[Rfam]
Shown here is a 71-nucleotide RNA from Trypanosoma brucei, a member of the family "tRNA". The base pairs follow the family's consensus structure, which is taken from published work. NCBI's taxonomy places the organism under Eukaryota, Discoba, Kinetoplastea, Trypanosomatidae, Trypanozoon. It is annotated as a transfer RNA.
RNA sequence: GGCCGCUUAGCACAUGGCAGUGCACCACUCUCGUAAAGUGGGGGUCGCGAGUUCGAUUCUCGCAGUGGCCU
Number, nucleotide and partner (000 for none) at each position: 001g070002g069003c068004c067005g066006c065007u064008u000009a000010g023011c022012a021013c020014a000015u000016g000017g000018c000019a000020g013021u012022g011023c010024a000025c041026c040027a039028c038029u037030c000031u000032c000033g000034u000035a000036a000037a029038g028039u027040g026041g025042g000043g000044g000045u000046c000047g063048c062049g061050a060051g059052u000053u000054c000055g000056a000057u000058u000059c051060u050061c049062g048063c047064a007065g006066u005067g004068g003069c002070c001071u000